Notes:
Eukaryotic large subunit ribosomal RNA: a 437-nucleotide part of an RNA from Kwoniella shandongensis.
[Rfam]
RNA sequence: GGAAGUAGCAAAUAUUCAAGUGAGAACCUUGAAGACUGAAGUGGAGAAAGGUUCCAUGGUAACAGCAGUUGGACAUGGGUCAGUCGAUCCUAAGAGAUAGGGAAGCUCCGUUUCAAAGUGCACGAUUUUCCGUGCCGCCUAUCGAAAGGGAAUCCGGUUAAGAUUCCGGAACCAGGAUGUGGAUCUUUGACGGUGACGUAAAUGAAGUUGGAGACGUCGGCAAGGGCCCCGGGAAGAGUUCUCUUUUCUCCUUAACCGCCUACGACCUCGAAAUCGGAUUAUCCGGAGCUGAGGUUAGAUGGCGGGUAGAGCACGACACCUCUGUCGUGUCCGGUGCGUCCUUGACGGUCCUUGAAAAUCCGACGGAACGUAUAAGUCUCACGCCUGGUCGUACUCAUAACCGCAGCAGGUCUCCAAGGUGAACAGCCUCUAGUUGA
Numbered sequence: 001g002g003a004a005g006u007a008g009c010a011a012a013u014a015u016u017c018a019a020g021u022g023a024g025a026a027c028c029u030u031g032a033a034g035a036c037u038g039a040a041g042u043g044g045a046g047a048a049a050g051g052u053u054c055c056a057u058g059g060u061a062a063c064a065g066c067a068g069u070u071g072g073a074c075a076u077g078g079g080u081c082a083g084u085c086g087a088u089c090c091u092a093a094g095a096g097a098u099a100g101g102g103a104a105g106c107u108c109c110g111u112u113u114c115a116a117a118g119u120g121c122a123c124g125a126u127u128u129u130c131c132g133u134g135c136c137g138c139c140u141a142u143c144g145a146a147a148g149g150g151a152a153u154c155c156g157g158u159u160a161a162g163a164u165u166c167c168g169g170a171a172c173c174a175g176g177a178u179g180u181g182g183a184u185c186u187u188u189g190a191c192g193g194u195g196a197c198g199u200a201a202a203u204g205a206a207g208u209u210g211g212a213g214a215c216g217u218c219g220g221c222a223a224g225g226g227c228c229c230c231g232g233g234a235a236g237a238g239u240u241c242u243c244u245u246u247u248c249u250c251c252u253u254a255a256c257c258g259c260c261u262a263c264g265a266c267c268u269c270g271a272a273a274u275c276g277g278a279u280u281a282u283c284c285g286g287a288g289c290u291g292a293g294g295u296u297a298g299a300u301g302g303c304g305g306g307u308a309g310a311g312c313a314c315g316a317c318a319c320c321u322c323u324g325u326c327g328u329g330u331c332c333g334g335u336g337c338g339u340c341c342u343u344g345a346c347g348g349u350c351c352u353u354g355a356a357a358a359u360c361c362g363a364c365g366g367a368a369c370g371u372a373u374a375a376g377u378c379u380c381a382c383g384c385c386u387g388g389u390c391g392u393a394c395u396c397a398u399a400a401c402c403g404c405a406g407c408a409g410g411u412c413u414c415c416a417a418g419g420u421g422a423a424c425a426g427c428c429u430c431u432a433g434u435u436g437a
Base pairs, nucleotide, nucleotide: 015033016032017031018030019029020028034435035434036433037432043415044414045413046412049395050394054078055077056076057075058074063071064070085391086390087389089149090148094143095142096112097111098110100109101108102107120135121134153170154169155168156167157166173387174386175385176384178383179382180381181380182379183377184376190199191198192197207364208363209362210361211360212359216349217348218347219346221344222343223342224341225340226339227338229334230333231332232252233251235249236248237247256305257304258303259302260301265295266294267293268292269291270290274286275285276284277283312329313328314327315326316325317324318323401410402409417429418428419427420426
Clan: LSU clan. The base pairs follow the family's consensus structure, which is taken from published work.